[Rfam]
RNA sequence: AAAGCAGGACGCAAUUACAGUGCUUCAUUCAUGUGGAAGAACUGCCAUUAUCCUGCUGAGAGAAUCCUCCUGCUGCAGACAAACAGCUUCUCCUGUCCAGGAUGAAGACACUCUGUAGUAGGGACAGGG
Numbered sequence: 001a002a003a004g005c006a007g008g009a010c011g012c013a014a015u016u017a018c019a020g021u022g023c024u025u026c027a028u029u030c031a032u033g034u035g036g037a038a039g040a041a042c043u044g045c046c047a048u049u050a051u052c053c054u055g056c057u058g059a060g061a062g063a064a065u066c067c068u069c070c071u072g073c074u075g076c077a078g079a080c081a082a083a084c085a086g087c088u089u090c091u092c093c094u095g096u097c098c099a100g101g102a103u104g105a106a107g108a109c110a111c112u113c114u115g116u117a118g119u120a121g122g123g124a125c126a127g128g129g
Base pairs, nucleotide, nucleotide: 003057004056005055006054007053008052018044019043020042021041023039024038025037026036068123069122070121071120072119073118074117075116076115077114078113087107088106089105090104091102092101093100094099